[Rfam]
RNA: Flavobacterium-1 RNA
RNA sequence: CCGAGAGAAGGCGACCAUAUCUGCCCCUGGCAUUUCCCUGUUCGUAAGCAGUGACCGCAAGGUAGCAACGAAGUACUCGGACCGGCAGGCGCUGGGUUCCCUGAUCAGGAAGCGCGGCCGGU
Numbered sequence: 001c002c003g004a005g006a007g008a009a010g011g012c013g014a015c016c017a018u019a020u021c022u023g024c025c026c027c028u029g030g031c032a033u034u035u036c037c038c039u040g041u042u043c044g045u046a047a048g049c050a051g052u053g054a055c056c057g058c059a060a061g062g063u064a065g066c067a068a069c070g071a072a073g074u075a076c077u078c079g080g081a082c083c084g085g086c087a088g089g090c091g092c093u094g095g096g097u098u099c100c101c102u103g104a105u106c107a108g109g110a111a112g113c114g115c116g117g118c119c120g121g122u
Stems, first nucleotide, its partner, number of pairs: 001080005010069001011045004016040002022032004048066002055062002082121004089115005100109003